[Rfam]
The family of this 114-nucleotide sequence from Pannonibacter tanglangensis is "Glycine riboswitch aptamer". About the family: This family represents the bacterial glycine riboswitch. The organism belongs to Pannonibacter, within Bacteria.
RNA sequence: CUCUGGAAAGCAGCGCGCUGGCUCGUGCCGGAUCGCUCACCGAAGGAGUAACCGGCGCCGCCCUGGAACUAGACCCGGGCGUGGUCGGGAAAUCUCUCAGGUUCUCGGACAGAG
Numbered sequence: 001c002u003c004u005g006g007a008a009a010g011c012a013g014c015g016c017g018c019u020g021g022c023u024c025g026u027g028c029c030g031g032a033u034c035g036c037u038c039a040c041c042g043a044a045g046g047a048g049u050a051a052c053c054g055g056c057g058c059c060g061c062c063c064u065g066g067a068a069c070u071a072g073a074c075c076c077g078g079g080c081g082u083g084g085u086c087g088g089g090a091a092a093u094c095u096c097u098c099a100g101g102u103u104c105u106c107g108g109a110c111a112g113a114g
Stems, first nucleotide, its partner, number of pairs: 001114005012037004039102003042098002046096003052089002